This 57-nucleotide RNA sequence from Pyrus ussuriensis x Pyrus communis belongs to the Rfam family "Plastid-rps18 3UTR RNA". Rfam classes the family as a cis-regulatory element. About the family: Plastid rps18 is a non-coding RNA (ncRNA) present in plastids. It was identified as a short stem-loop motif in the 3 prime untranslate region (3UTR) of rps18 gene. For this family Rfam cites "Retrograde signaling in plants: A critical review focusing on the GUN pathway and beyond" (Richter et al., Plant Commun, 2023). The match comes from Rfam's covariance-model search (64 bits). Lineage of the source: Eukaryota > Tracheophyta > Gunneridae > Rosales > Pyrus. The base pairs follow the family's consensus structure, which was predicted with LocARNA.
RNA sequence: UGCAAGUAUUUUACGAUUAAAAUGUAACCGUCUCUUGUAAAGAUUGUGUAUAAAUUA
Numbered sequence: 001u002g003c004a005a006g007u008a009u010u011u012u013a014c015g016a017u018u019a020a021a022a023u024g025u026a027a028c029c030g031u032c033u034c035u036u037g038u039a040a041a042g043a044u045u046g047u048g049u050a051u052a053a054a055u056u057a
Stems, first nucleotide, its partner, number of pairs: 018037003022033001024031002
Dot-bracket structure: .................(((.(.((....)).).)))....................